[Rfam]
RNA sequence: GGGUUACUCAAAAUGGAGGCCCUUUCUUUUUUUUUGACCUGGAGAGUGCUUCGAUUUUGGGUGUCCC
Numbered sequence: 001g002g003g004u005u006a007c008u009c010a011a012a013a014u015g016g017a018g019g020c021c022c023u024u025u026c027u028u029u030u031u032u033u034u035u036g037a038c039c040u041g042g043a044g045a046g047u048g049c050u051u052c053g054a055u056u057u058u059g060g061g062u063g064u065c066c067c
Base pairs, nucleotide, nucleotide: 005063006062007061008060009059010058011057012056013055014054016052017051018050019049020048022046023045025043026042027041

Overview:
Shown here is a 67-nucleotide RNA from Carlito syrichta, a member of the family "mir-290 microRNA precursor family". Rfam 15.1 lists 565 matches to the family in 128 species. Taxonomically the source falls in Carlito (Eukaryota, Metazoa, Sarcopterygii, Primates). The base pairs follow the family's consensus structure, which was predicted with RNAalifold. Clan: mir-290 clan.